[Rfam]
RNA: Archaeal large subunit ribosomal RNA, nucleotides 2076 to 2658
Organism: Halogeometricum borinquense
RNA sequence: CCCCCAAGGGGAAGCGAAGACCCUAUAGAGCUUUACUGCAGGCUGUCGCUGGGACGUGGUCGCUGAUGUGCAGCAUAGGUAGGAGACACUACACAGGUAUCCGCGCUAGCGGACCACCGAGUCAUCAUUGAAAUACUACCCGUCAGUGACUGCGACCCUCACUCCGGGAGGAGGACACCGGUAGCCGGGCAGUUUGACUGGGGCGGUACGCGCUCGAAAAGAUAUCGAGCGCGCCCAAAGAUUUCCUCACGCGAGUCGGAAACUCGUGGAAGAGCGCAAGAGCACACGGAAGUCUGACAGUGUCAUUCCCAACGAGUGACGCUGACGCGAAAGCGUGGUCUAGCGAACCUACGAGGUUCAUUCAUGGGACCCGUAGAUGACAGAAAAGCUACCUUAGGGAUAACAGAGUCGUCACCGGCAAGAGCACAUAUCGACCCGGUGGCUUGCUACCUCGAUGUCGGUUCCCUCCAUCCUGCCUGUGCAGAAGCAGGCAAGGGUGAGGUUGUUCGCCUAUUAAAGGAGGUCGUGAGCUGGGUUUAGACCGUCGUGAGACAGGUCGGCUGCUAUCUAUUGGGGGUGUUAC
Numbered sequence: 001c002c003c004c005c006a007a008g009g010g011g012a013a014g015c016g017a018a019g020a021c022c023c024u025a026u027a028g029a030g031c032u033u034u035a036c037u038g039c040a041g042g043c044u045g046u047c048g049c050u051g052g053g054a055c056g057u058g059g060u061c062g063c064u065g066a067u068g069u070g071c072a073g074c075a076u077a078g079g080u081a082g083g084a085g086a087c088a089c090u091a092c093a094c095a096g097g098u099a100u101c102c103g104c105g106c107u108a109g110c111g112g113a114c115c116a117c118c119g120a121g122u123c124a125u126c127a128u129u130g131a132a133a134u135a136c137u138a139c140c141c142g143u144c145a146g147u148g149a150c151u152g153c154g155a156c157c158c159u160c161a162c163u164c165c166g167g168g169a170g171g172a173g174g175a176c177a178c179c180g181g182u183a184g185c186c187g188g189g190c191a192g193u194u195u196g197a198c199u200g201g202g203g204c205g206g207u208a209c210g211c212g213c214u215c216g217a218a219a220a221g222a223u224a225u226c227g228a229g230c231g232c233g234c235c236c237a238a239a240g241a242u243u244u245c246c247u248c249a250c251g252c253g254a255g256u257c258g259g260a261a262a263c264u265c266g267u268g269g270a271a272g273a274g275c276g277c278a279a280g281a282g283c284a285c286a287c288g289g290a291a292g293u294c295u296g297a298c299a300g301u302g303u304c305a306u307u308c309c310c311a312a313c314g315a316g317u318g319a320c321g322c323u324g325a326c327g328c329g330a331a332a333g334c335g336u337g338g339u340c341u342a343g344c345g346a347a348c349c350u351a352c353g354a355g356g357u358u359c360a361u362u363c364a365u366g367g368g369a370c371c372c373g374u375a376g377a378u379g380a381c382a383g384a385a386a387a388g389c390u391a392c393c394u395u396a397g398g399g400a401u402a403a404c405a406g407a408g409u410c411g412u413c414a415c416c417g418g419c420a421a422g423a424g425c426a427c428a429u430a431u432c433g434a435c436c437c438g439g440u441g442g443c444u445u446g447c448u449a450c451c452u453c454g455a456u457g458u459c460g461g462u463u464c465c466c467u468c469c470a471u472c473c474u475g476c477c478u479g480u481g482c483a484g485a486a487g488c489a490g491g492c493a494a495g496g497g498u499g500a501g502g503u504u505g506u507u508c509g510c511c512u513a514u515u516a517a518a519g520g521a522g523g524u525c526g527u528g529a530g531c532u533g534g535g536u537u538u539a540g541a542c543c544g545u546c547g548u549g550a551g552a553c554a555g556g557u558c559g560g561c562u563g564c565u566a567u568c569u570a571u572u573g574g575g576g577g578u579g580u581u582a583c
Base pairs, nucleotide, nucleotide: 001577002576003575004574005573006572007571010569011568012567014564015563022398023397024396025395027394028393029390030389031388032387033386035193036192037191038190042185043184044183045182046181047180048179051158052157053156055154056153057152058151059150060149061148062147063146064145065144066143067142068141078140079139080138081137082136085123086122087121100113101112102111103110104109162173163172164171165170196209197207198206199205210232211231212230213229214228215227235338236337241293242292243291244290245289246288247273248272250268251267252266253265254264255263274283275282298324299323300322301321302320303319304318305317306316326335328333349376350375351374352373353372355371356370357369358368359367407448408447409446411445412442413441414440415439416438417437418436422432423431459534460532461531462530463529464526465523466522467521468520469519472497473496476491477490478489479488480487500512501511502510503509540558541557542556543555544553545552546551